[Rfam]
RNA: U5 spliceosomal RNA
Organism: Lodderomyces elongisporus
RNA sequence: AUCGCCAGGAGAUCAAUUCCAACGAACAUGGUUCUUGCCUUUUCCCAGAACCAUCCGGGAAUUGUCUCCCGUUAGUCAAAUGGUGUAUCAAUUAUCUAAUUUUUGGAAUAUUUAUCAUUUAGUUU
Numbered sequence: 001a002u003c004g005c006c007a008g009g010a011g012a013u014c015a016a017u018u019c020c021a022a023c024g025a026a027c028a029u030g031g032u033u034c035u036u037g038c039c040u041u042u043u044c045c046c047a048g049a050a051c052c053a054u055c056c057g058g059g060a061a062u063u064g065u066c067u068c069c070c071g072u073u074a075g076u077c078a079a080a081u082g083g084u085g086u087a088u089c090a091a092u093u094a095u096c097u098a099a100u101u102u103u104u105g106g107a108a109u110a111u112u113u114a115u116c117a118u119u120u121a122g123u124u125u
Stems, first nucleotide, its partner, number of pairs: 003085004009068003014064007028054008107125001110123003114119001